The record is a 90-nucleotide RNA sequence, which matches "PGK RNA" in Rfam. Pairs were carried over by alignment from the consensus structure, which is taken from published work. The family's RNA type in Rfam is cis-regulatory element.

RNA sequence: UAGCAAUUUCUACCACUCUAAACUAUAUGAUCAUAUGAAGAGGAGAAACUUCAAGGUAGAAAUAUUGCACUAAAUACUGAUAAUAUUUAG
Numbered sequence: 001u002a003g004c005a006a007u008u009u010c011u012a013c014c015a016c017u018c019u020a021a022a023c024u025a026u027a028u029g030a031u032c033a034u035a036u037g038a039a040g041a042g043g044a045g046a047a048a049c050u051u052c053a054a055g056g057u058a059g060a061a062a063u064a065u066u067g068c069a070c071u072a073a074a075u076a077c078u079g080a081u082a083a084u085a086u087u088u089a090g
Base pairs, nucleotide, nucleotide: 008061009060010059011058012057013056036053037052038051039050040049070090071089072088073087074086075085076084